[Rfam]
RNA sequence: GCGCCCGUAGCUCAGUCGGAUAGAGCGGUGGUUUCCGGUACCGCGUCAGUCGGGGGUUCGAAUCCCUCCGGGCGCA
Numbered sequence: 001g002c003g004c005c006c007g008u009a010g011c012u013c014a015g016u017c018g019g020a021u022a023g024a025g026c027g028g029u030g031g032u033u034u035c036c037g038g039u040a041c042c043g044c045g046u047c048a049g050u051c052g053g054g055g056g057u058u059c060g061a062a063u064c065c066c067u068c069c070g071g072g073c074g075c076a
Base pairs, nucleotide, nucleotide: 001075002074003073004072005071006070007069010026011025012024013023028044029043030042031041032040052068053067054066055065056064
Description: The record is a 76-nucleotide sequence from Guptibacillus hwajinpoensis, which matches "tRNA" in Rfam. Rfam describes the family as follows. Transfer RNA (tRNA) molecules are approximately 80 nucleotides in length. The family's consensus secondary structure is taken from published work. Gene Ontology term of the family: triplet codon-amino acid adaptor activity.